[Rfam]
RNA sequence: CCCUGUAUCGAAAGGUGAUCACGGCGUCUGGUAGCCUGGUCAUUUAAUAAAUACAGGAACAUGAAGCUGUGAGCCUUUCCCUGUGUUUGAAGGAUCCUCCGUUCCUUUUGAACCCUGGCGCUCUCAGACA
Numbered sequence: 001c002c003c004u005g006u007a008u009c010g011a012a013a014g015g016u017g018a019u020c021a022c023g024g025c026g027u028c029u030g031g032u033a034g035c036c037u038g039g040u041c042a043u044u045u046a047a048u049a050a051a052u053a054c055a056g057g058a059a060c061a062u063g064a065a066g067c068u069g070u071g072a073g074c075c076u077u078u079c080c081c082u083g084u085g086u087u088u089g090a091a092g093g094a095u096c097c098u099c100c101g102u103u104c105c106u107u108u109u110g111a112a113c114c115c116u117g118g119c120g121c122u123c124u125c126a127g128a129c130a
Base pairs, nucleotide, nucleotide: 002057003056004055005054006053007052008051014044015043016042017041018040019039020038021037023036024035025034068126069125071123072122073121074120085113086112087111088110089109090107091106092105093104094103
RNA: Small nucleolar RNA SNORA71